A member of the RNA family "Eukaryotic large subunit ribosomal RNA" from Jaapia argillacea, 492 nucleotides of a longer RNA. The source organism's lineage runs through Eukaryota, Agaricomycotina, Jaapiales, Jaapia and Jaapia argillacea. A search with the family's covariance model found it, with a score of 3287 bits. The family's consensus secondary structure is taken from published work.
RNA sequence: CCUGCCGAAGUUUCCCUCAGGAUAGCAGAAACUCGUAAAUCAGAUUUAUGUGGUAAAGCGAAUGAUUAGAGGAAUUGGGGUUGAAACGACCUCGACCUAUUCUCAAACUUUAAAUAUGUAAGAACGAGCCGUCUCUUGAUUGGACCGCUCGGCGAUUGAGAGUUUCUAGUGGGCCAUUUUUGGUAAGCAGAACUGGCGAUGCGGGAUGAACCGAACGUGAGGUUAAGGUGCCGGAAUUUACGCUCAUCAGACACCACAAAAGGUGUUGGUUCAUCUAGACAGCAGGACGGUGGCCAUGGAAGUCGGAACCCGCUAAGGAGUGUGUAACAACUCACCUGCCGAAUGAACUAGCCCUGAAAAUGGAUGGCGCUCAAGCGUAAUACCCAUACCUCACCGUCAGCGUUGAAGUGACGCGCUGACGAGUAGGCAGGCGUGGAGGUCAGUGAAGAAGCCUUGGCAGCGAUGCUGGGUGAAACGGCCUCUAGUGCAGAU
Dot-bracket structure: ((((((....(.(((....))).)..(((((((...........(((((((....(((....(((..(.(((..((((((.(.....).))))))))).)..)))..)).)....)))))))..(((((.(((.........))).))))).........))))))).....((((.(((((.....))))).))))....(((......)))...(((((.(...(((......(.(..(((.................(((.((((((((((.......(((((.(((...((.........))...)))(...)(...((......)).).)))))...)))))))))))))...................)))..)))))...).)))))(((((((((.........)))))))))....))))))(.((((((((.((......((....(((....)))...))...))))))))))..).....